[Rfam]
RNA sequence: AUAAAUAUUUGAUAGACAUUUACAGAUUGUCUCAUCAAUUUGAAAACAUGAGGAUAAAGUAAAGCUGGCGAGAUAUCGUUUCAGUCGUCAUAUUUCCCAUUGACGCUCUGAUUGUUGCUCGUCCACAA
Numbered sequence: 001a002u003a004a005a006u007a008u009u010u011g012a013u014a015g016a017c018a019u020u021u022a023c024a025g026a027u028u029g030u031c032u033c034a035u036c037a038a039u040u041u042g043a044a045a046a047c048a049u050g051a052g053g054a055u056a057a058a059g060u061a062a063a064g065c066u067g068g069c070g071a072g073a074u075a076u077c078g079u080u081u082c083a084g085u086c087g088u089c090a091u092a093u094u095u096c097c098c099a100u101u102g103a104c105g106c107u108c109u110g111a112u113u114g115u116u117g118c119u120c121g122u123c124c125a126c127a128a
Stems, first nucleotide, its partner, number of pairs: 007040001009038003014032005067124002069121004075112004084107001086105005093099001

This 128-nucleotide sequence from Helianthus annuus belongs to the Rfam family "Small nucleolar RNA snoR111".
Rfam classes the family as an H/ACA-box small nucleolar RNA.
Gene Ontology terms of the family: nucleolus and RNA processing.
A search with the family's covariance model found it, with a score of 76 bits.
The literature on the family includes a 2002 paper in Curr Biol by Marker et al., "Experimental RNomics: identification of 140 candidates for small non-messenger RNAs in the plant Arabidopsis thaliana".
Lineage of the source: Eukaryota > Streptophytina > Magnoliopsida > Asterales > Helianthus.
Pairs were carried over by alignment from the consensus structure, which was predicted with WAR.